Rfam assigns this 78-nucleotide RNA from Bradyrhizobium sp. LMTR 3 to the family "Makes More Granules Regulator RNA (mmgR)". The literature on the family includes a 2010 paper in BMC Genomics by Schluter et al., "A genome-wide survey of sRNAs in the symbiotic nitrogen-fixing alpha-proteobacterium Sinorhizobium meliloti".
[Rfam]
RNA sequence: UAUCGCAGCCCUCCUUGGGCGUUUCCUCCCUAGACUUGGGCCGCUUGUUCAUUACAAGCGGCCUUUUUUUCUCGGCGG
Number, nucleotide and partner (000 for none) at each position: 001u000002a000003u000004c000005g000006c000007a000008g020009c019010c018011c017012u000013c000014c000015u000016u000017g011018g010019g009020c008021g000022u000023u000024u000025c000026c000027u000028c000029c000030c000031u000032a000033g000034a000035c000036u000037u000038g000039g063040g062041c061042c060043g059044c058045u057046u056047g055048u000049u000050c000051a000052u000053u000054a000055c047056a046057a045058g044059c043060g042061g041062c040063c039064u000065u000066u000067u000068u000069u000070u000071c000072u000073c000074g000075g000076c000077g000078g000